Nucleotides: 102
Stems, first nucleotide, its partner, number of pairs: 018088008030048006058078005064072001
Number, partner (000 for none) and nucleotide at each position: 001000c002000a003000a004000u005000u006000a007000g008000a009000u010000g011000c012000g013000u014000u015000c016000u017000u018088c019087c020086u021085u022084c023083g024082u025081a026000u027000a028000u029000c030048c031047u032046c033045g034044a035043g036000a037000a038000u039000a040000u041000g042000g043035c044034u045033c046032g047031a048030g049000a050000g051000u052000c053000u054000c055000u056000a057000c058078c059077g060076g061075g062074a063000u064072a065000c066000c067000g068000u069000a070000a071000a072064u073000u074062u075061c076060c077059u078058g079000a080000c081025u082024a083023u084022g085021a086020a087019g088018g089000u090000g091000g092000a093000a094000a095000u096000c097000a098000c099000g100000u101000g102000a